[Rfam]
RNA sequence: CUGCACACGCAUAAAGGCUAUGCUUAAAUUUAUUGAAAUAGUGGAGUCUUGAGCGCUAGUGCAAAGAUGGAAUGCUGAGUUUAAACUCAGCGGCGGCCAGACAACCGUUGAGAUGAAUCCACAGAUGGGUUCCAUUUACAGUGGUACUUGUCUACUAAUUUCAUCUCAUAAUU
Numbered sequence: 001c002u003g004c005a006c007a008c009g010c011a012u013a014a015a016g017g018c019u020a021u022g023c024u025u026a027a028a029u030u031u032a033u034u035g036a037a038a039u040a041g042u043g044g045a046g047u048c049u050u051g052a053g054c055g056c057u058a059g060u061g062c063a064a065a066g067a068u069g070g071a072a073u074g075c076u077g078a079g080u081u082u083a084a085a086c087u088c089a090g091c092g093g094c095g096g097c098c099a100g101a102c103a104a105c106c107g108u109u110g111a112g113a114u115g116a117a118u119c120c121a122c123a124g125a126u127g128g129g130u131u132c133c134a135u136u137u138a139c140a141g142u143g144g145u146a147c148u149u150g151u152c153u154a155c156u157a158a159u160u161u162c163a164u165c166u167c168a169u170a171a172u173u
Base pairs, nucleotide, nucleotide: 002063003062004061005060006059008055009054010053012051013050015047017042018041019040020039021038024035110167111166112165113164114163115162116161117160128149129148131146133144

This 173-nucleotide RNA from Solanum lycopersicum belongs to the Rfam family "small nucleolar RNA snoR143". Gene Ontology terms of the family: RNA processing and nucleolus. The base pairs follow the family's consensus structure, which was predicted with RNAalifold. The organism belongs to Solanum subgen. Lycopersicon, within Eukaryota.